[Rfam]
Background
This 82-nucleotide RNA sequence from Hermetia illucens belongs to the Rfam family "drz-agam-1 ribozyme". The base pairs follow the family's consensus structure, which is taken from published work. Rfam 15.1 lists 10,507 matches to the family in 53 species. A reference for the family is Webb et al. (2009), "Widespread occurrence of self-cleaving ribozymes", Science. The organism belongs to Hermetia, within Eukaryota. Rfam links the family to the GO term catalytic activity. It scores 37 bits against the family's covariance model.

RNA sequence: CGCUACUACCAAAUCCUGUCUCCACCUCUACAUGGUGAUCGCUGGGAGUUCUUUCUUAAUGAGUAACUGCUGACGGAGAAGG
Dot-bracket structure: ..............(((.(.((.(((.......)))..........((((.((.(.....))).))))......)).).)))
Numbered sequence: 001c002g003c004u005a006c007u008a009c010c011a012a013a014u015c016c017u018g019u020c021u022c023c024a025c026c027u028c029u030a031c032a033u034g035g036u037g038a039u040c041g042c043u044g045g046g047a048g049u050u051c052u053u054u055c056u057u058a059a060u061g062a063g064u065a066a067c068u069g070c071u072g073a074c075g076g077a078g079a080a081g082g
Stems, first nucleotide, its partner, number of pairs: 015082003019078001021076002024036003047068004052063002055061001